[Rfam]
RNA sequence: GUUGCUUUAUAAUGGUGAACACCCUGUUAAUUUUGGUUGGGGAUGUUCAAGUUUCCAAAGCAUAGACUGAUUGGAUUACCAGUAUUAAACAGCACCGUGCAUAUUUGCUUGCACUGUGUUACCUGUCUCCUGGUACAUUU
Numbered sequence: 001g002u003u004g005c006u007u008u009a010u011a012a013u014g015g016u017g018a019a020c021a022c023c024c025u026g027u028u029a030a031u032u033u034u035g036g037u038u039g040g041g042g043a044u045g046u047u048c049a050a051g052u053u054u055c056c057a058a059a060g061c062a063u064a065g066a067c068u069g070a071u072u073g074g075a076u077u078a079c080c081a082g083u084a085u086u087a088a089a090c091a092g093c094a095c096c097g098u099g100c101a102u103a104u105u106u107g108c109u110u111g112c113a114c115u116g117u118g119u120u121a122c123c124u125g126u127c128u129c130c131u132g133g134u135a136c137a138u139u140u
Stems, first nucleotide, its partner, number of pairs: 003062006016049005022042004078134005084128001091120003095116001097114003